[Rfam]
RNA sequence: GUGCACCAGAUACGAGCCUGACAGUCUUACCUGUCCCAGAUGUGUUACACUGGGAUCUUUCCGUGACUGCAUGGCUUCAGAUGGUGCAAGAGAAAUUUCAGCCCUGAGAUUUAAGCUUCUCAGUGGAAAGCAACUCUGUUGAGUUAUGACUCAGAGGCACAAAG
Numbered sequence: 001g002u003g004c005a006c007c008a009g010a011u012a013c014g015a016g017c018c019u020g021a022c023a024g025u026c027u028u029a030c031c032u033g034u035c036c037c038a039g040a041u042g043u044g045u046u047a048c049a050c051u052g053g054g055a056u057c058u059u060u061c062c063g064u065g066a067c068u069g070c071a072u073g074g075c076u077u078c079a080g081a082u083g084g085u086g087c088a089a090g091a092g093a094a095a096u097u098u099c100a101g102c103c104c105u106g107a108g109a110u111u112u113a114a115g116c117u118u119c120u121c122a123g124u125g126g127a128a129a130g131c132a133a134c135u136c137u138g139u140u141g142a143g144u145u146a147u148g149a150c151u152c153a154g155a156g157g158c159a160c161a162a163a164g
Stems, first nucleotide, its partner, number of pairs: 003087006015076004022069005029058001033057001034055001036053004101158003122135003126131001137155001139154006
Dot-bracket structure: ..((((((......((((...(((((..(...((.((((..........)))).).))......)))))...)))).....)))))).............(((..................(((.(....).))).(.((((((....))))))))))......
The family of this 164-nucleotide sequence from Menidia menidia is "Small Cajal body specific RNA 1". The base pairs follow the family's consensus structure, which was predicted with RNAalifold. The organism belongs to Menidia, within Eukaryota. A search with the family's covariance model found it, with a score of 63 bits. Gene Ontology terms of the family: nucleolus, RNA processing and Cajal body. Rfam's curators write: scaRNAs are a specific class of small nuclear RNAs which localise to the Cajal bodies and guide the modification of RNA polymerase II transcribed spliceosomal RNAs U1, U2, U4, U5 and U12. ACA35 belong to the H/ACA box class of guide RNAs as it has the predicted hairpin-hinge-hairpin-tail structure, conserved H/ACA-box motifs and is found associated with GAR1. It is predicted to guide pseudouridylation of the U2 spliceosomal snRNA at residue U89.